[Rfam]
RNA sequence: CGUGUGGUACCGGUGCAGGCCUGUGGUCUGGCACGGGAGAGCGACACGGCCUUACUGAGGU
Numbered sequence: 001c002g003u004g005u006g007g008u009a010c011c012g013g014u015g016c017a018g019g020c021c022u023g024u025g026g027u028c029u030g031g032c033a034c035g036g037g038a039g040a041g042c043g044a045c046a047c048g049g050c051c052u053u054a055c056u057g058a059g060g061u
Base pairs, nucleotide, nucleotide: 001048002047003046004045005044007042008041010037011036013034014033015032